Rfam assigns this 88-nucleotide sequence from Desulfosporosinus sp. Tol-M to the family "c-di-GMP-I riboswitch aptamer". Taxonomically the source falls in Desulfosporosinus (Bacteria, Bacillati, Bacillota, Desulfitobacteriaceae). From the family's description: GEMM was predicted in a large-scale screen for bacterial structured RNA regulatory elements. The family is grouped with related families in Rfam's "c-di-GMP_I riboswitch clan". It scores 80 bits against the family's covariance model. For this family Rfam cites "Identification of 22 candidate structured RNAs in bacteria using the CMfinder comparative genomics pipeline" (Weinberg et al., Nucleic Acids Res, 2007). Its family is annotated with cyclic-di-GMP binding in the Gene Ontology.
RNA sequence: AAAGGAUAAAGGCAAACUCGGUGAAAGCUGAGGACGCAAAGCCGCGAGUCUACAGCUUGAAAAAGGCCAGGAUAGUCGGGUUGCCGUG
Numbered sequence: 001a002a003a004g005g006a007u008a009a010a011g012g013c014a015a016a017c018u019c020g021g022u023g024a025a026a027g028c029u030g031a032g033g034a035c036g037c038a039a040a041g042c043c044g045c046g047a048g049u050c051u052a053c054a055g056c057u058u059g060a061a062a063a064a065g066g067c068c069a070g071g072a073u074a075g076u077c078g079g080g081u082u083g084c085c086g087u088g
Base pairs, nucleotide, nucleotide: 012037013036017032018031019030020029021028022027040082041081042080043079045078046077047076048073049072050071055067056066057065058064